[Rfam]
RNA sequence: GCGUGGGUCGGCCCACUGCGUACUGGAACCAGUGGGCUGGGGGAUCCCGCCGCCCCAAUCCCCGCGGGCGGUGGAUCAGUCCGGGGGGCGGAAUCCGCCUCCCGGACUGAA
Numbered sequence: 001g002c003g004u005g006g007g008u009c010g011g012c013c014c015a016c017u018g019c020g021u022a023c024u025g026g027a028a029c030c031a032g033u034g035g036g037c038u039g040g041g042g043g044a045u046c047c048c049g050c051c052g053c054c055c056c057a058a059u060c061c062c063c064g065c066g067g068g069c070g071g072u073g074g075a076u077c078a079g080u081c082c083g084g085g086g087g088g089c090g091g092a093a094u095c096c097g098c099c100u101c102c103c104g105g106a107c108u109g110a111a
Stems, first nucleotide, its partner, number of pairs: 002109001006077003009039010040045001047074009078108013
Shown here is a 111-nucleotide sequence from Streptomyces corynorhini, a member of the family "Streptomyces RNA 4115". Rfam classes the family as a small RNA.